[Rfam]
RNA: small nucleolar RNA snoR126
Organism: Oryza meyeriana
RNA sequence: UGGCUGUGAUGACAGACAAACUUCGUUUCUCGAUGCUGAGACUUGAUUUGUUCAAGGACCAAAAUUGUGCUGACCUUUGUGCGUGUCUGAGCCAA
Numbered sequence: 001u002g003g004c005u006g007u008g009a010u011g012a013c014a015g016a017c018a019a020a021c022u023u024c025g026u027u028u029c030u031c032g033a034u035g036c037u038g039a040g041a042c043u044u045g046a047u048u049u050g051u052u053c054a055a056g057g058a059c060c061a062a063a064a065u066u067g068u069g070c071u072g073a074c075c076u077u078u079g080u081g082c083g084u085g086u087c088u089g090a091g092c093c094a095a
Base pairs, nucleotide, nucleotide: 001094002093003092004091